[Rfam]
Record summary: The record is a 256-nucleotide RNA from Prunus dulcis, which matches "RNase MRP" in Rfam. By type it is a ribozyme. The organism belongs to Prunus, within Eukaryota. RNase MRP is an enzymatically active ribonucleoprotein with two distinct roles in eukaryotes.
RNA sequence: ACACCACUGGGCGAAGCGAAUGGGCCACGGUUCUGUAAAAGGAACCAGACUCAGGAAAGUCCCCGGGCCCACUAACUGCAGAGAUGCAGGCCUGGAAACAGGUAACCUCCGAGAACUUGGAGCCUUAAUCGCCUUGUGCGAUGGGCUGAGACACGUGUGGAGCCUCGGGCUUUAAGUCUGGAGCAUCUUUGGCCGUAUGUACAGUUAUUCGCUUGGUCCUUUGGACUAACUGAACGGGGCUUACGAUCCAGUGGUG
Numbered sequence: 001a002c003a004c005c006a007c008u009g010g011g012c013g014a015a016g017c018g019a020a021u022g023g024g025c026c027a028c029g030g031u032u033c034u035g036u037a038a039a040a041g042g043a044a045c046c047a048g049a050c051u052c053a054g055g056a057a058a059g060u061c062c063c064c065g066g067g068c069c070c071a072c073u074a075a076c077u078g079c080a081g082a083g084a085u086g087c088a089g090g091c092c093u094g095g096a097a098a099c100a101g102g103u104a105a106c107c108u109c110c111g112a113g114a115a116c117u118u119g120g121a122g123c124c125u126u127a128a129u130c131g132c133c134u135u136g137u138g139c140g141a142u143g144g145g146c147u148g149a150g151a152c153a154c155g156u157g158u159g160g161a162g163c164c165u166c167g168g169g170c171u172u173u174a175a176g177u178c179u180g181g182a183g184c185a186u187c188u189u190u191g192g193c194c195g196u197a198u199g200u201a202c203a204g205u206u207a208u209u210c211g212c213u214u215g216g217u218c219c220u221u222u223g224g225a226c227u228a229a230c231u232g233a234a235c236g237g238g239g240c241u242u243a244c245g246a247u248c249c250a251g252u253g254g255u256g
Stems, first nucleotide, its partner, number of pairs: 002256010014214006022052003030045005057242003061239004077088004090103005122177002125174001127172001131170004143165004153158001216226004